[Rfam]
Nucleotides: 136
Stems, first nucleotide, its partner, number of pairs: 020041005049088001051086003054079006063070002095111006113129003
Number, partner (000 for none) and nucleotide at each position: 001000c002000a003000g004000u005000g006000a007000g008000a009000g010000a011000u012000a013000a014000a015000c016000u017000c018000a019000c020041c021040a022039a023038g024037g025000u026000a027000a028000a029000a030000g031000u032000u033000c034000a035000a036000g037024c038023c039022u040021u041020g042000u043000a044000a045000c046000u047000c048000g049088g050000a051086u052085a053084g054079c055078a056077a057076u058075g059074u060000a061000a062000a063070g064069a065000a066000a067000a068000a069064u070063c071000g072000a073000u074059a075058u076057g077056u078055u079054g080000a081000a082000g083000c084053c085052u086051a087000c088049c089000g090000a091000c092000a093000a094000a095111u096110c097109u098108g099107u100106u101000a102000u103000a104000a105000g106100g107099a108098c109097a110096g111095g112000u113129g114128u115127g116000a117000g118000a119000u120000a121000g122000c123000a124000g125000g126000u127115c128114a129113u130000a131000a132000c133000g134000u135000g136000a